[Rfam]
Shown here is a 106-nucleotide RNA sequence from Brassica oleracea, a member of the family "MIR391 microRNA precursor family".
Pairs were carried over by alignment from the consensus structure, which was predicted with RNAalifold.
It scores 88 bits against the family's covariance model.
RNA sequence: GCACAUAUAGAUUUGCUUCGCAGGAGAGAUAGCGCCAUCACAUUUUCUAAGAGUUUAGCUGAUGGUGAUGACGGUAUUUCUCCUACGUAGCUAUCCUUAUAUGUGC
Numbered sequence: 001g002c003a004c005a006u007a008u009a010g011a012u013u014u015g016c017u018u019c020g021c022a023g024g025a026g027a028g029a030u031a032g033c034g035c036c037a038u039c040a041c042a043u044u045u046u047c048u049a050a051g052a053g054u055u056u057a058g059c060u061g062a063u064g065g066u067g068a069u070g071a072c073g074g075u076a077u078u079u080c081u082c083c084u085a086c087g088u089a090g091c092u093a094u095c096c097u098u099a100u101a102u103g104u105g106c
Stems, first nucleotide, its partner, number of pairs: 001106003005102003009097002013093001015091003019087002022084010033073002036070006045053003